[Rfam]
RNA sequence: AGGCAACACAAAGCGCCAGAGCUUGUCGAAUCCGGAGAGUAGCUAUGCGGUGCGAAGAUCAGGAACGGGAAAGCUGAUCCGAGCGAACAACCGCAGGGCAUGCGACGAUGGAGAAGGCAAGCUGACGAGGUGGGGGUGUUCGAAAUAUUCGGCGGGGACCUCCCGGCUUAUCAUCGAAGCCGACAAUCGGAACUCAAAACGUUGCGGGCAACCGAGCGGACAAAAUUCCGGUACGAUGAACG
Numbered sequence: 001a002g003g004c005a006a007c008a009c010a011a012a013g014c015g016c017c018a019g020a021g022c023u024u025g026u027c028g029a030a031u032c033c034g035g036a037g038a039g040u041a042g043c044u045a046u047g048c049g050g051u052g053c054g055a056a057g058a059u060c061a062g063g064a065a066c067g068g069g070a071a072a073g074c075u076g077a078u079c080c081g082a083g084c085g086a087a088c089a090a091c092c093g094c095a096g097g098g099c100a101u102g103c104g105a106c107g108a109u110g111g112a113g114a115a116g117g118c119a120a121g122c123u124g125a126c127g128a129g130g131u132g133g134g135g136g137u138g139u140u141c142g143a144a145a146u147a148u149u150c151g152g153c154g155g156g157g158a159c160c161u162c163c164c165g166g167c168u169u170a171u172c173a174u175c176g177a178a179g180c181c182g183a184c185a186a187u188c189g190g191a192a193c194u195c196a197a198a199a200c201g202u203u204g205c206g207g208g209c210a211a212c213c214g215a216g217c218g219g220a221c222a223a224a225a226u227u228c229c230g231g232u233a234c235g236a237u238g239a240a241c242g
Base pairs, nucleotide, nucleotide: 020123021122022121023120024119025118026117027116132163133162134161135160136159140152141151142150143149164182165181166180167179168178169177186232187231188230189229190228191227192226200218201217202216203215205214206213207212
This 242-nucleotide sequence from Cohnella endophytica belongs to the Rfam family "glmS glucosamine-6-phosphate activated ribozyme aptamer".
The family's RNA type in Rfam is riboswitch.
It scores 74 bits against the family's covariance model.
The organism belongs to Cohnella, within Bacteria.